[Rfam]
RNA sequence: CAGUCUUGAUCGGGAGAGCGCAGCGACGCUGCCGCCGAAGGGGCACUCACCCAUAAACUCUCAGGCAAAAGGACCGGUCAAGGGAC
Number, nucleotide and partner (000 for none) at each position: 001c000002a000003g000004u000005c000006u081007u080008g079009a078010u077011c076012g075013g074014g000015a000016g000017a000018g000019c000020g032021c031022a030023g029024c000025g000026a000027c000028g000029c023030u022031g021032c020033c000034g066035c065036c064037g062038a061039a000040g000041g060042g059043g058044c000045a000046c000047u053048c000049a000050c000051c000052c000053a047054u000055a000056a000057a000058c043059u042060c041061u038062c037063a000064g036065g035066c034067a000068a000069a000070a000071g000072g000073a000074c013075c012076g011077g010078u009079c008080a007081a006082g000083g000084g000085a000086c000
A member of the RNA family "Glycine riboswitch aptamer" from Massilia timonae, 86 nucleotides long. This family represents the bacterial glycine riboswitch. Glycine riboswitches usually consist of two metabolite-binding aptamers domains with similar structures in tandem. The aptamers cooperatively bind glycine to regulate the expression of downstream genes. In Bacillus subtilis, this riboswitch is found upstream of the gcvT operon which controls glycine degradation. The match comes from Rfam's covariance-model search (62 bits).